This 102-nucleotide RNA sequence from Enterococcus hirae belongs to the Rfam family "TPP riboswitch aptamer (THI element)". Taxonomically the source falls in Enterococcus hirae (Bacteria, Bacilli, Lactobacillales, Enterococcus). Gene Ontology term of the family: thiamine pyrophosphate binding.
RNA sequence: AGUAUCACAAAGGGGAGCCUUAUGAGGCUGAGAUUGAAGUUUUUCUAAACCCUUCGUACCUGUAUCGGUUAUGCGAGCGUAGGAAUUGUGACGAUCAAUUGA
Numbered sequence: 001a002g003u004a005u006c007a008c009a010a011a012g013g014g015g016a017g018c019c020u021u022a023u024g025a026g027g028c029u030g031a032g033a034u035u036g037a038a039g040u041u042u043u044u045c046u047a048a049a050c051c052c053u054u055c056g057u058a059c060c061u062g063u064a065u066c067g068g069u070u071a072u073g074c075g076a077g078c079g080u081a082g083g084a085a086u087u088g089u090g091a092c093g094a095u096c097a098a099u100u101g102a
Stems, first nucleotide, its partner, number of pairs: 006090005011053004017028004036045003059083004065076003